This 78-nucleotide RNA from Varroa destructor belongs to the Rfam family "mir-87 microRNA precursor family".
Taxonomically the source falls in Varroa (Eukaryota, Ecdysozoa, Panarthropoda, Mesostigmata).
On this family, see Sempere et al., Dev Biol 2003: "Temporal regulation of microRNA expression in Drosophila melanogaster mediated by hormonal signals and broad-Complex gene activity".
Rfam links the family to the GO terms miRNA-mediated post-transcriptional gene silencing and RISC complex.

[Rfam]
RNA sequence: AACAACCCGGCCUGAAGCAUUGUCUCAACCUGUGAUUAUUAAAAUUCGAGGUGAGCAAAGUUUCAGGUGUGUUCGUUA
Numbered sequence: 001a002a003c004a005a006c007c008c009g010g011c012c013u014g015a016a017g018c019a020u021u022g023u024c025u026c027a028a029c030c031u032g033u034g035a036u037u038a039u040u041a042a043a044a045u046u047c048g049a050g051g052u053g054a055g056c057a058a059a060g061u062u063u064c065a066g067g068u069g070u071g072u073u074c075g076u077u078a
Base pairs, nucleotide, nucleotide: 002076003075005073007071010068011067012066013065014064015063017061018060020058021057024055025054026053027052029051030050031049